A member of the RNA family "ZMP/ZTP riboswitch aptamer (pfl RNA motif)" from Paenibacillus radicis, 80 nucleotides long. NCBI's taxonomy places the organism under Bacteria, Bacillota, Bacilli, Caryophanales, Paenibacillus. A search with the family's covariance model found it, with a score of 59 bits. A reference for the family is Jones and Ferre-D'Amare (2015), "Recognition of the bacterial alarmone ZMP through long-distance association of two RNA subdomains", Nat Struct Mol Biol.

RNA sequence: AAACCUGUGUGUGACUGGCGUAAACGUGGAUAACCACGAGGAAGCACAUGGCCAUAGAGCCGUACGCCUGGGCAAAAGUA
Numbered sequence: 001a002a003a004c005c006u007g008u009g010u011g012u013g014a015c016u017g018g019c020g021u022a023a024a025c026g027u028g029g030a031u032a033a034c035c036a037c038g039a040g041g042a043a044g045c046a047c048a049u050g051g052c053c054a055u056a057g058a059g060c061c062g063u064a065c066g067c068c069u070g071g072g073c074a075a076a077a078g079u080a
Stems, first nucleotide, its partner, number of pairs: 005051008015041002017068005026037004059073003